[Rfam]
RNA sequence: GAUGGCUGUGACGAUUUGUAAAUAUUCAAGCUCAACAGACCAAAUCACAUGUUUUCAUCUAGGAGUUGAUUUGUAUGUCGAUUUAUCCUGCUGAACCGGGCCAUG
Numbered sequence: 001g002a003u004g005g006c007u008g009u010g011a012c013g014a015u016u017u018g019u020a021a022a023u024a025u026u027c028a029a030g031c032u033c034a035a036c037a038g039a040c041c042a043a044a045u046c047a048c049a050u051g052u053u054u055u056c057a058u059c060u061a062g063g064a065g066u067u068g069a070u071u072u073g074u075a076u077g078u079c080g081a082u083u084u085a086u087c088c089u090g091c092u093g094a095a096c097c098g099g100g101c102c103a104u105g
Stems, first nucleotide, its partner, number of pairs: 002104005

This 105-nucleotide RNA sequence from Triticum turgidum belongs to the Rfam family "Small nucleolar RNA Z107/R87". The base pairs follow the family's consensus structure, which was predicted with RNAfold. The match comes from Rfam's covariance-model search (84 bits). The family has 9 seed sequences and 783 matches in Rfam 15.1.